[Rfam]
This 82-nucleotide RNA sequence from Parnassius apollo belongs to the Rfam family "mir-981 microRNA precursor family". The base pairs follow the family's consensus structure, which was predicted with RNAalifold. Taxonomically the source falls in Parnassius (Eukaryota, Protostomia, Dicondylia, Parnassiinae). The literature on the family includes a 2010 paper in BMC Genomics by Legeai et al., "Bioinformatic prediction, deep sequencing of microRNAs and expression analysis during phenotypic plasticity in the pea aphid, Acyrthosiphon pisum". It scores 70 bits against the family's covariance model.
RNA sequence: CCGCACAUAAUUCGGGUUUCGGGACGAUGUAACCGUGAAUAAUGAAAUGGUUCGUUGUCGACGAAACCUGCAAAAUGUACGG
Numbered sequence: 001c002c003g004c005a006c007a008u009a010a011u012u013c014g015g016g017u018u019u020c021g022g023g024a025c026g027a028u029g030u031a032a033c034c035g036u037g038a039a040u041a042a043u044g045a046a047a048u049g050g051u052u053c054g055u056u057g058u059c060g061a062c063g064a065a066a067c068c069u070g071c072a073a074a075a076u077g078u079a080c081g082g
Stems, first nucleotide, its partner, number of pairs: 001082003005078002013070009031052004
Dot-bracket structure: (((.((......(((((((((.........((((..............)))).........)))))))))......)).)))